[Rfam]
RNA sequence: CCGGCGUUCAUGAAGGCCUGGCCUUAAAGCAGACUCUGCGGGGCCUGGCCGGAUGUCUCCCGCCUC
Numbered sequence: 001c002c003g004g005c006g007u008u009c010a011u012g013a014a015g016g017c018c019u020g021g022c023c024u025u026a027a028a029g030c031a032g033a034c035u036c037u038g039c040g041g042g043g044c045c046u047g048g049c050c051g052g053a054u055g056u057c058u059c060c061c062g063c064c065u066c
Base pairs, nucleotide, nucleotide: 003064004063005062015050016049017048018047020045021044022043023042024041030038031037032036

A member of the RNA family "Selenocysteine insertion sequence 1" from Gasterosteus aculeatus, 66 nucleotides long. Rfam classes the family as a cis-regulatory element. The incorporation of selenocysteine into a protein sequence is directed by an in-frame UGA codon (usually a stop codon) within the coding region of the mRNA. Selenoprotein mRNAs contain a conserved secondary structure in the 3' UTR that is required for the distinction of UGA stop from UGA selenocysteine. The source organism's lineage runs through Eukaryota, Eumetazoa, Gnathostomata, Osteoglossocephalai and Gasterosteus.